[Rfam]
RNA: Glycine riboswitch aptamer
RNA sequence: AUGGUAUACUGAGCACAGAGAUCGUAAAAUUGAUCAGCUGAAGGAGCAUUUUACCUUGAUGUAGUAAAAGUAUUCUGGCUAGAAUAAACUCUCAGGCAAAAGGUCAUAGUGCUUACA
Numbered sequence: 001a002u003g004g005u006a007u008a009c010u011g012a013g014c015a016c017a018g019a020g021a022u023c024g025u026a027a028a029a030u031u032g033a034u035c036a037g038c039u040g041a042a043g044g045a046g047c048a049u050u051u052u053a054c055c056u057u058g059a060u061g062u063a064g065u066a067a068a069a070g071u072a073u074u075c076u077g078g079c080u081a082g083a084a085u086a087a088a089c090u091c092u093c094a095g096g097c098a099a100a101a102g103g104u105c106a107u108a109g110u111g112c113u114u115a116c117a
Base pairs, nucleotide, nucleotide: 007111008110009109010108011107013105020035021034022033023032037097038096039095040093041092044091045090046089050084051083